[Rfam]
RNA sequence: AUAAUACUAAGGUGCAAUUCAACGGAAAAGUAAACGAUGAUCCAUCAUCAACUCUACGUUAGAAUGCUAGAUUAGCAGGUAAAUAUGCAUGUGAACUUCAGAUUAUGCUGGGUUUACACUCCUUU
Numbered sequence: 001a002u003a004a005u006a007c008u009a010a011g012g013u014g015c016a017a018u019u020c021a022a023c024g025g026a027a028a029a030g031u032a033a034a035c036g037a038u039g040a041u042c043c044a045u046c047a048u049c050a051a052c053u054c055u056a057c058g059u060u061a062g063a064a065u066g067c068u069a070g071a072u073u074a075g076c077a078g079g080u081a082a083a084u085a086u087g088c089a090u091g092u093g094a095a096c097u098u099c100a101g102a103u104u105a106u107g108c109u110g111g112g113u114u115u116a117c118a119c120u121c122c123u124u125u
Stems, first nucleotide, its partner, number of pairs: 001041002004038002011035001014031002058073001060071001090118008099110002
RNA: Enterobacteria greA leader